[Rfam]
RNA sequence: GGUUUUCAUUGGUGCAAAUCCAACCAAUUCUGUUUGAGAUGAGAAGCAAUUCCCCAUUGGUAGCAAAUGGUUAUCCCGGGGAAAUAUAGUAU
Dot-bracket structure: ........((((.......))))............................((((...((((((.....))))))..))))...........
Plastid-rps12 3UTR RNA: a 92-nucleotide RNA sequence from Tetracentron sinense. The family's RNA type in Rfam is cis-regulatory element. Pairs were carried over by alignment from the consensus structure, which was predicted with LocARNA. For this family Rfam cites "Retrograde signaling in plants: A critical review focusing on the GUN pathway and beyond" (Richter et al., Plant Commun, 2023).